[Rfam]
Shown here is a 149-nucleotide RNA from Halobacillus halophilus, a member of the family "FMN riboswitch aptamer (RFN element)".
The base pairs follow the family's consensus structure, which is taken from published work.
Its family is annotated with FMN binding in the Gene Ontology.
NCBI's taxonomy places the organism under Bacteria, Bacillati, Bacillota, Caryophanales, Halobacillus halophilus.
RNA sequence: UUCCAUCUUCGGGGCAGGGUGCAAUUCCCGACCGACGGUGAUGAGCGUAUCUACGCUUUUAGUCCGUGACCCGUUUGGCAUCAUGCUAAACGGUGGACCUGGUGCAAAUCCGGGACCGACAGUUACAGUCUGGAUGGGAGAAGAUGUCG
Numbered sequence: 001u002u003c004c005a006u007c008u009u010c011g012g013g014g015c016a017g018g019g020u021g022c023a024a025u026u027c028c029c030g031a032c033c034g035a036c037g038g039u040g041a042u043g044a045g046c047g048u049a050u051c052u053a054c055g056c057u058u059u060u061a062g063u064c065c066g067u068g069a070c071c072c073g074u075u076u077g078g079c080a081u082c083a084u085g086c087u088a089a090a091c092g093g094u095g096g097a098c099c100u101g102g103u104g105c106a107a108a109u110c111c112g113g114g115a116c117c118g119a120c121a122g123u124u125a126c127a128g129u130c131u132g133g134a135u136g137g138g139a140g141a142a143g144a145u146g147u148c149g
Stems, first nucleotide, its partner, number of pairs: 004146007017029003031129002033118002035067004062116002071093002098114005120132003